[Rfam]
RNA sequence: UAGCUUGUGUCAAUAGGGCACACUUCAGUGGAGACACUGUUGCUUAAACCUCGUGAACUCAGGGAAGGAAGGAAAUUCUAAUCCUGAGCCAAGCCUCUAACAAUUAGAGGAAGGUGCAGAGACUAUCGAAACCAUGCAGAUUAAGAAUCGGGUAAAAGUACUAGUUUGCAGAAGGGAGUAGAGUACAUCCAUACUAUUGGGUGGAAGCGCGAGGAUGCUUAUAUUCGACCGAAAGAAUAUAUGUAUAUGAUAUAGUCCACCUGCAAAUAUUGCAG
Numbered sequence: 001u002a003g004c005u006u007g008u009g010u011c012a013a014u015a016g017g018g019c020a021c022a023c024u025u026c027a028g029u030g031g032a033g034a035c036a037c038u039g040u041u042g043c044u045u046a047a048a049c050c051u052c053g054u055g056a057a058c059u060c061a062g063g064g065a066a067g068g069a070a071g072g073a074a075a076u077u078c079u080a081a082u083c084c085u086g087a088g089c090c091a092a093g094c095c096u097c098u099a100a101c102a103a104u105u106a107g108a109g110g111a112a113g114g115u116g117c118a119g120a121g122a123c124u125a126u127c128g129a130a131a132c133c134a135u136g137c138a139g140a141u142u143a144a145g146a147a148u149c150g151g152g153u154a155a156a157a158g159u160a161c162u163a164g165u166u167u168g169c170a171g172a173a174g175g176g177a178g179u180a181g182a183g184u185a186c187a188u189c190c191a192u193a194c195u196a197u198u199g200g201g202u203g204g205a206a207g208c209g210c211g212a213g214g215a216u217g218c219u220u221a222u223a224u225u226c227g228a229c230c231g232a233a234a235g236a237a238u239a240u241a242u243g244u245a246u247a248u249g250a251u252a253u254a255g256u257c258c259a260c261c262u263g264c265a266a267a268u269a270u271u272g273c274a275g
Stems, first nucleotide, its partner, number of pairs: 006022006027038003049214004054209002059087006068078003088115002094109001096107001119258001121257005217244002220241006263273004
Rfam assigns this 275-nucleotide RNA sequence from Niallia taxi to the family "Group I catalytic intron". Gene Ontology term of the family: Group I intron splicing. From the family's description: Group I catalytic introns are large self-splicing ribozymes. They catalyse their own excision from mRNA, tRNA and rRNA precursors in a wide range of organisms. The family's consensus secondary structure is taken from published work. The literature on the family includes a 1996 paper in Science by Cate et al., "Crystal structure of a group I ribozyme domain: principles of RNA packing".